[Rfam]
RNA sequence: GGUGUAUGGUGUGUGUAGUGUCCGUCUAUGUCUGGUGCGGCAGCUCGUCUGUGUCUUAUGGAUGAUGCUGCUGCACCCACACCGAUCCCAUGGCCACAGAACAACGGGGAUCAUAGUACUGGCCCUGUGAACCCCUUUACCACUGGUCAGCCUCCAAACUCCCCAACAAUA
Numbered sequence: 001g002g003u004g005u006a007u008g009g010u011g012u013g014u015g016u017a018g019u020g021u022c023c024g025u026c027u028a029u030g031u032c033u034g035g036u037g038c039g040g041c042a043g044c045u046c047g048u049c050u051g052u053g054u055c056u057u058a059u060g061g062a063u064g065a066u067g068c069u070g071c072u073g074c075a076c077c078c079a080c081a082c083c084g085a086u087c088c089c090a091u092g093g094c095c096a097c098a099g100a101a102c103a104a105c106g107g108g109g110a111u112c113a114u115a116g117u118a119c120u121g122g123c124c125c126u127g128u129g130a131a132c133c134c135c136u137u138u139a140c141c142a143c144u145g146g147u148c149a150g151c152c153u154c155c156a157a158a159c160u161c162c163c164c165a166a167c168a169a170u171a
Stems, first nucleotide, its partner, number of pairs: 013091003030082002033079003036075006043068002045065003050060003106164005119150006127143003
RNA: Small nucleolar RNA SNORA23